[Rfam]
MIR1435 microRNA precursor family: a 198-nucleotide RNA sequence from Brachypodium distachyon.
It scores 104 bits against the family's covariance model.
The organism belongs to Brachypodium, within Eukaryota.
The family has 3 seed sequences and 1,765 matches in Rfam 15.1.
The family's consensus secondary structure was predicted with RNAalifold.
RNA sequence: UAGCUUUGUCCUAAGUCAAACUUCUUAAAGUUUGACCAAGUUUAUAGAAAAAUCUACCAACAUCUACAACUUUAAAUUAGUUAAUUAAAUUUGUCAUGAUAUAUCUUCAUGGCAUACUUAUUUGUUAUUGUAAAUGUUGGUAGAUAUUUCUAUAAAACUUGGUCAAACGUUAAGAAGUUUGACUUGGGACAAGGCUAC
Dot-bracket structure: ....(((((.((((((((((((((((....(((((.........((((((.(..(((.(((((.((((....(((((..........................................)))))....)))).))))).)))..).))))))..........)))))....)))))))))))))))).))))).....
Numbered sequence: 001u002a003g004c005u006u007u008g009u010c011c012u013a014a015g016u017c018a019a020a021c022u023u024c025u026u027a028a029a030g031u032u033u034g035a036c037c038a039a040g041u042u043u044a045u046a047g048a049a050a051a052a053u054c055u056a057c058c059a060a061c062a063u064c065u066a067c068a069a070c071u072u073u074a075a076a077u078u079a080g081u082u083a084a085u086u087a088a089a090u091u092u093g094u095c096a097u098g099a100u101a102u103a104u105c106u107u108c109a110u111g112g113c114a115u116a117c118u119u120a121u122u123u124g125u126u127a128u129u130g131u132a133a134a135u136g137u138u139g140g141u142a143g144a145u146a147u148u149u150c151u152a153u154a155a156a157a158c159u160u161g162g163u164c165a166a167a168c169g170u171u172a173a174g175a176a177g178u179u180u181g182a183c184u185u186g187g188g189a190c191a192a193g194g195c196u197a198c
Stems, first nucleotide, its partner, number of pairs: 005193005011187016031167005045152006052145001055142003059138005065132004073124005